Overview: This 118-nucleotide RNA sequence belongs to the Rfam family "Group II catalytic intron D1-D4-2". It is one of the family's seed sequences. Group II introns are found in rRNA, tRNA and mRNA of organelles in fungi, plants and protists, and also in mRNA in bacteria.
[Rfam]
RNA sequence: GGGGGACGGCCCCCGGAGCCGGCCUGCAGGGGUAGGCUUCAAACCACCACAAGCUGCAGGGGUAAAGAGCCCUUGUGGUGAGCGUUGCUGGAAAAGGCGGAAGGUCAUUCCGUCAGGU
Numbered sequence: 001g002g003g004g005g006a007c008g009g010c011c012c013c014c015g016g017a018g019c020c021g022g023c024c025u026g027c028a029g030g031g032g033u034a035g036g037c038u039u040c041a042a043a044c045c046a047c048c049a050c051a052a053g054c055u056g057c058a059g060g061g062g063u064a065a066a067g068a069g070c071c072c073u074u075g076u077g078g079u080g081a082g083c084g085u086u087g088c089u090g091g092a093a094a095a096g097g098c099g100g101a102a103g104g105u106c107a108u109u110c111c112g113u114c115a116g117g118u
Base pairs, nucleotide, nucleotide: 001014002013003012004011005010015040016039017038018037019036020035022033023032024031025030045117047091048090050087051086052085053079054078056076057075058074060072061071062070063069096114097113098112099111100110101109